[Rfam]
RNA sequence: GCUGAUCGCGCGGGAGAGUUCCUGCGAUUCGCCAGUCGGAUCGCGGGACGCCGAAGGAGCAACCGCCCCGGAAUCUCUCAGGCUUCAGGACCGCGUUGGUCGA
Numbered sequence: 001g002c003u004g005a006u007c008g009c010g011c012g013g014g015a016g017a018g019u020u021c022c023u024g025c026g027a028u029u030c031g032c033c034a035g036u037c038g039g040a041u042c043g044c045g046g047g048a049c050g051c052c053g054a055a056g057g058a059g060c061a062a063c064c065g066c067c068c069c070g071g072a073a074u075c076u077c078u079c080a081g082g083c084u085u086c087a088g089g090a091c092c093g094c095g096u097u098g099g100u101c102g103a
Base pairs, nucleotide, nucleotide: 006098008096009095010094011093012092013091020048021047022046023045024044025043026042027041028040029039050083051082052081053079054078057077058076059075063071064070
RNA: Glycine riboswitch aptamer
Organism: Novosphingobium sp. MD-1